Rfam assigns this 171-nucleotide RNA from Oribacterium sp. C9 to the family "Group II catalytic intron D1-D4-3".
On this family, see Lehmann and Schmidt, Crit Rev Biochem Mol Biol 2003: "Group II introns: structure and catalytic versatility of large natural ribozymes".
A search with the family's covariance model found it, with a score of 119 bits.
The organism belongs to Oribacterium, within Bacteria.
The base pairs follow the family's consensus structure.
RNA sequence: UGCAUCGUGAGGUGUUGGCUAGAAGAAGGGAUAGCGAAAUCGUAGCCUGACGGACAGAAACCUGAUAAUAAGGCGCCUAUGGUGGAUAAGCUGGCAACAGACAGCGAAGUCCUAAAGGCAACCGUAGCCCGUAGACGUAAAUCAGGCAGGUAGACGAGGAAAGACUGGCAG
Numbered sequence: 001u002g003c004a005u006c007g008u009g010a011g012g013u014g015u016u017g018g019c020u021a022g023a024a025g026a027a028g029g030g031a032u033a034g035c036g037a038a039a040u041c042g043u044a045g046c047c048u049g050a051c052g053g054a055c056a057g058a059a060a061c062c063u064g065a066u067a068a069u070a071a072g073g074c075g076c077c078u079a080u081g082g083u084g085g086a087u088a089a090g091c092u093g094g095c096a097a098c099a100g101a102c103a104g105c106g107a108a109g110u111c112c113u114a115a116a117g118g119c120a121a122c123c124g125u126a127g128c129c130c131g132u133a134g135a136c137g138u139a140a141a142u143c144a145g146g147c148a149g150g151u152a153g154a155c156g157a158g159g160a161a162a163g164a165c166u167g168g169c170a171g
Base pairs, nucleotide, nucleotide: 002015003014004013005012006011030169032167035163040157041156042155043154045151046150047149048148049147061146062145063144064143065142066141073138074137075136077134078133079132080131081130082129084112085111086110087109090105091104092103093102